Shown here is a 165-nucleotide RNA from Anaerocolumna aminovalerica, a member of the family "glmS glucosamine-6-phosphate activated ribozyme aptamer". The organism belongs to Anaerocolumna, within Bacteria. For this family Rfam cites "Control of gene expression by a natural metabolite-responsive ribozyme" (Winkler et al., Nature, 2004). Gene Ontology terms of the family: catalytic activity and regulation of gene expression. The family's consensus secondary structure is taken from published work. This entry contains a glucosamine-6-phosphate activated ribozyme that is found in the mRNA for GlmS. GlmS is an enzyme that uses fructose-6-phosphate and glutamine to generate glucosamine-6-phosphate.

[Rfam]
RNA sequence: AUGUUUAAAUUAGCGCCAUGUACCUCUAUUGGGUCAGUUUUUUAGAGGUUAACGAGGUAGAGGGUUAUCGAAGUAUUCGGCGGAUGCUCUCUCGUGUUUCCGGACACGUAAUAUGUUGAUAAAGCAAUGGGUAACCAUGGGACAAAAGCAGCAUAACCGGAAAAU
Numbered sequence: 001a002u003g004u005u006u007a008a009a010u011u012a013g014c015g016c017c018a019u020g021u022a023c024c025u026c027u028a029u030u031g032g033g034u035c036a037g038u039u040u041u042u043u044a045g046a047g048g049u050u051a052a053c054g055a056g057g058u059a060g061a062g063g064g065u066u067a068u069c070g071a072a073g074u075a076u077u078c079g080g081c082g083g084a085u086g087c088u089c090u091c092u093c094g095u096g097u098u099u100c101c102g103g104a105c106a107c108g109u110a111a112u113a114u115g116u117u118g119a120u121a122a123a124g125c126a127a128u129g130g131g132u133a134a135c136c137a138u139g140g141g142a143c144a145a146a147a148g149c150a151g152c153a154u155a156a157c158c159g160g161a162a163a164a165u
Stems, first nucleotide, its partner, number of pairs: 022049007059092005068080004093108005112155007125140001127138004